[Rfam]
RNA: mir-199 microRNA precursor family
Organism: Microtus ochrogaster
RNA sequence: UCUCUGCCAUCCCAGUGUUCAGACUAGCUGUUCAGCAGGCUGUGAAUUGUACAGUAGUCUGCACAUUGGUUAGGCUGGGCU
Numbered sequence: 001u002c003u004c005u006g007c008c009a010u011c012c013c014a015g016u017g018u019u020c021a022g023a024c025u026a027g028c029u030g031u032u033c034a035g036c037a038g039g040c041u042g043u044g045a046a047u048u049g050u051a052c053a054g055u056a057g058u059c060u061g062c063a064c065a066u067u068g069g070u071u072a073g074g075c076u077g078g079g080c081u
Base pairs, nucleotide, nucleotide: 012069013068014067015066016065017064018063020061021060022059023058024057025056026055028054029053030052031051033049034048